[Rfam]
RNA sequence: UACUAGCACAUAUGUCAAAUUCCUAAUUAACGUUUUAUUUUUAUAUCCAUCGUUUCUUAGAGCCGUAAUUGUGCUGAUAUCAUAUCCAGGGAAGAACCUACCAAUAAAAGUUGCCAAGUGCAAUGACGCUCGCGGCGUCUCCUAGGCCAUGGGCGUGUUCGGAAACUACUCCCACAUAC
Numbered sequence: 001u002a003c004u005a006g007c008a009c010a011u012a013u014g015u016c017a018a019a020u021u022c023c024u025a026a027u028u029a030a031c032g033u034u035u036u037a038u039u040u041u042u043a044u045a046u047c048c049a050u051c052g053u054u055u056c057u058u059a060g061a062g063c064c065g066u067a068a069u070u071g072u073g074c075u076g077a078u079a080u081c082a083u084a085u086c087c088a089g090g091g092a093a094g095a096a097c098c099u100a101c102c103a104a105u106a107a108a109a110g111u112u113g114c115c116a117a118g119u120g121c122a123a124u125g126a127c128g129c130u131c132g133c134g135g136c137g138u139c140u141c142c143u144a145g146g147c148c149a150u151g152g153g154c155g156u157g158u159u160c161g162g163a164a165a166c167u168a169c170u171c172c173c174a175c176a177u178a179c
Stems, first nucleotide, its partner, number of pairs: 004076007023060004029054004089173004101162002110124005126156003131151002134148003
About this RNA
Rfam assigns this 179-nucleotide RNA sequence from Saccharomyces mikatae to the family "Small nucleolar RNA snR85". The source organism's lineage runs through Eukaryota, Fungi, Saccharomycotina, Saccharomycetales and Saccharomyces mikatae. Rfam classes the family as an H/ACA-box small nucleolar RNA. It is one of the family's seed sequences.